Overview
Rfam assigns this 81-nucleotide sequence from Triplophysa rosa to the family "mir-181 microRNA precursor family". Its family is annotated with miRNA-mediated post-transcriptional gene silencing and RISC complex in the Gene Ontology. The match comes from Rfam's covariance-model search (60 bits).
[Rfam]
RNA sequence: GAGUUACAGUGAACAUUCAACGCUGUCGGUGAGUUUGCACAUCAGAGAAACCAUCGCGUGUUGAGUGUACCCUGUCUCUUG
Numbered sequence: 001g002a003g004u005u006a007c008a009g010u011g012a013a014c015a016u017u018c019a020a021c022g023c024u025g026u027c028g029g030u031g032a033g034u035u036u037g038c039a040c041a042u043c044a045g046a047g048a049a050a051c052c053a054u055c056g057c058g059u060g061u062u063g064a065g066u067g068u069a070c071c072c073u074g075u076c077u078c079u080u081g
Base pairs, nucleotide, nucleotide: 002080003079006075007074008073014067015066016065017064018063019062020061021060022059027056028055029054030053031052033051034050035049036048

The source organism's lineage runs through Eukaryota, Craniata, Neopterygii, Cobitoidei and Triplophysa. Pairs were carried over by alignment from the consensus structure, which was predicted with PFOLD. For this family Rfam cites "microRNAs: tiny regulators with great potential" (Ambros, Cell, 2001).